[Rfam]
RNA sequence: AAAUUCUGGUAAUCGCUGCGGCGCUAGACGUCGUAGAGGAAAGUCCAUGCUCACACGGUACUGAGAUGUCCGUAGUGUUCGUGCUUACUGAAAAAAUAAGGUAAGGCAGCUGUUCAGGCUGACGGCGGAAGGAAAACCUAAGUCCUUGGAUAUGGUUGACACUUCCUGAAAGUGCCACAGUGACGAAGCUUGCUUGGAAACAUGCAAGGUGGAACGAGGUAAACCCCACGAGUGAGAAACCCAAAUUAUGGUAGGGGCACUCUCUUGAAGGAAUUGAACGGAUAGAGGGACGGAGCUUGCUCUGUAGAUAGAUGAUUACUACCUGGUCGUACGAGGCGCAAGCUGUUUGAGUACUCAGGAACAAAACAUGGCUUAUGGAA
Numbered sequence: 001a002a003a004u005u006c007u008g009g010u011a012a013u014c015g016c017u018g019c020g021g022c023g024c025u026a027g028a029c030g031u032c033g034u035a036g037a038g039g040a041a042a043g044u045c046c047a048u049g050c051u052c053a054c055a056c057g058g059u060a061c062u063g064a065g066a067u068g069u070c071c072g073u074a075g076u077g078u079u080c081g082u083g084c085u086u087a088c089u090g091a092a093a094a095a096a097u098a099a100g101g102u103a104a105g106g107c108a109g110c111u112g113u114u115c116a117g118g119c120u121g122a123c124g125g126c127g128g129a130a131g132g133a134a135a136a137c138c139u140a141a142g143u144c145c146u147u148g149g150a151u152a153u154g155g156u157u158g159a160c161a162c163u164u165c166c167u168g169a170a171a172g173u174g175c176c177a178c179a180g181u182g183a184c185g186a187a188g189c190u191u192g193c194u195u196g197g198a199a200a201c202a203u204g205c206a207a208g209g210u211g212g213a214a215c216g217a218g219g220u221a222a223a224c225c226c227c228a229c230g231a232g233u234g235a236g237a238a239a240c241c242c243a244a245a246u247u248a249u250g251g252u253a254g255g256g257g258c259a260c261u262c263u264c265u266u267g268a269a270g271g272a273a274u275u276g277a278a279c280g281g282a283u284a285g286a287g288g289g290a291c292g293g294a295g296c297u298u299g300c301u302c303u304g305u306a307g308a309u310a311g312a313u314g315a316u317u318a319c320u321a322c323c324u325g326g327u328c329g330u331a332c333g334a335g336g337c338g339c340a341a342g343c344u345g346u347u348u349g350a351g352u353a354c355u356c357a358g359g360a361a362c363a364a365a366a367c368a369u370g371g372c373u374u375a376u377g378g379a380a
Base pairs, nucleotide, nucleotide: 004380005379006378008320009319010318011317012316013315014314016036017035018034019033020032021031041374042373043372045371046370047369048368049367050236051235052234053233054232055073056072057071058070060069061068079231080230081229082228083227084105085104086103087102088101089100106123107121108120109119110118111117124226125225127166128165129164130163135157136156137155138154142151143150144149172224173223174220175219176218189208190207191206192205193204195202196201240256241255242254260289261288262287263286264285265284290305291304292303293302294301295300322359323358324357325356326355329354330353331352332351

This 380-nucleotide RNA sequence belongs to the Rfam family "Bacterial RNase P class B".
Rfam classes the family as a ribozyme.
Rfam's curators put it in the seed alignment.
On this family, see Brown, Nucleic Acids Res 1999: "The Ribonuclease P Database".
Gene Ontology terms of the family: tRNA processing, ribonuclease P activity and dimeric ribonuclease P complex.